This 67-nucleotide sequence from Eleutherodactylus coqui belongs to the Rfam family "Small nucleolar RNA SNORD42". Rfam classes the family as a C/D-box small nucleolar RNA. From the family's description: snoRNA U42 is found in intron 3 of the ribosomal protein L23a (RPL23a) gene in humans and is also present in mice. The base pairs follow the family's consensus structure, which was predicted with PFOLD. For this family Rfam cites "Purified box C/D snoRNPs are able to reproduce site-specific 2'-O-methylation of target RNA in vitro" (Galardi et al., Mol Cell Biol, 2002).
[Rfam]
RNA sequence: AUGCACAUGAUGGAAAAUGUUAUUCUGGCUGAUCACUUUGAUGUUUCCAAAGGAACCACUGAUGCAU
Numbered sequence: 001a002u003g004c005a006c007a008u009g010a011u012g013g014a015a016a017a018u019g020u021u022a023u024u025c026u027g028g029c030u031g032a033u034c035a036c037u038u039u040g041a042u043g044u045u046u047c048c049a050a051a052g053g054a055a056c057c058a059c060u061g062a063u064g065c066a067u
Stems, first nucleotide, its partner, number of pairs: 001067005
Dot-bracket structure: (((((.........................................................)))))